[Rfam]
Nucleotides: 156
Stems, first nucleotide, its partner, number of pairs: 011141004018040007041136006051076001077121003085096004099115004
Number, partner (000 for none) and nucleotide at each position: 001000c002000a003000a004000a005000u006000c007000a008000a009000a010000u011141u012140g013139c014138c015000g016000a017000a018040g019039u020038u021037g022036u023035u024034u025000c026000g027000c028000g029000a030000a031000a032000u033000c034024g035023a036022a037021c038020a039019a040018c041136g042135c043134g044133g045132g046131g047000g048000a049000a050000c051076c052000a053000a054000a055000g056000u057000u058000u059000u060000g061000c062000c063000a064000g065000u066000c067000g068000c069000a070000g071000a072000a073000c074000a075000c076051g077121g078120g079119g080000c081000g082000u083000a084000u085096c086095u087094g088093a089000c090000u091000a092000g093088u094087c095086a096085g097000a098000a099115g100114a101113a102112g103000a104000c105000u106000u107000c108000u109000u110000c111000g112102c113101u114100u115099c116000c117000a118000g119079c120078c121077c122000g123000a124000c125000a126000g127000c128000u129000a130000a131046c132045c133044u134043c135042g136041c137000a138014g139013g140012c141011g142000u143000u144000a145000a146000c147000g148000a149000a150000g151000a152000a153000g154000g155000a156000c
c-di-AMP riboswitch aptamer (ydaO/yuaA leader): a 156-nucleotide RNA from a Pyrinomonadaceae bacterium. NCBI's taxonomy places the organism under Bacteria, Acidobacteriota, Blastocatellia, Blastocatellales, Pyrinomonadaceae. It scores 73 bits against the family's covariance model.